[Rfam]
RNA: Selenocysteine transfer RNA
Organism: Pristionchus pacificus
RNA sequence: GCCAGGAUGAACUCCGGUGGUCCGGGGUGCGGGCUUCAAACCCGUAGGCGUCUAGCGGCGCAGUGGUUCGAUUCCACCUUCCUGGU
Numbered sequence: 001g002c003c004a005g006g007a008u009g010a011a012c013u014c015c016g017g018u019g020g021u022c023c024g025g026g027g028u029g030c031g032g033g034c035u036u037c038a039a040a041c042c043c044g045u046a047g048g049c050g051u052c053u054a055g056c057g058g059c060g061c062a063g064u065g066g067u068u069c070g071a072u073u074c075c076a077c078c079u080u081c082c083u084g085g086u
Stems, first nucleotide, its partner, number of pairs: 001086007009078001012027006028046006048061005063077004